[Rfam]
RNA: Small nucleolar RNA SNORA31
RNA sequence: UAGCAUCCACUGAUAGGCCUGUUGCCAUAAUUGGUGGCCUCUGGGUUUGCACAAGGAUGCAACGGUAAUAUUCCUCACGAUGUCUGGCCAUCUGGAAGGUGGCUGGAAAAGACUGAAUUGAGGAGAAUAGGA
Numbered sequence: 001u002a003g004c005a006u007c008c009a010c011u012g013a014u015a016g017g018c019c020u021g022u023u024g025c026c027a028u029a030a031u032u033g034g035u036g037g038c039c040u041c042u043g044g045g046u047u048u049g050c051a052c053a054a055g056g057a058u059g060c061a062a063c064g065g066u067a068a069u070a071u072u073c074c075u076c077a078c079g080a081u082g083u084c085u086g087g088c089c090a091u092c093u094g095g096a097a098g099g100u101g102g103c104u105g106g107a108a109a110a111g112a113c114u115g116a117a118u119u120g121a122g123g124a125g126a127a128u129a130g131g132a
Base pairs, nucleotide, nucleotide: 003060004059005058006057007056008055011051012050014049015048016047017046018045019044024038025037026036027035028034072124073123074122075121076120077119083112084111085110088102089101090100091099092098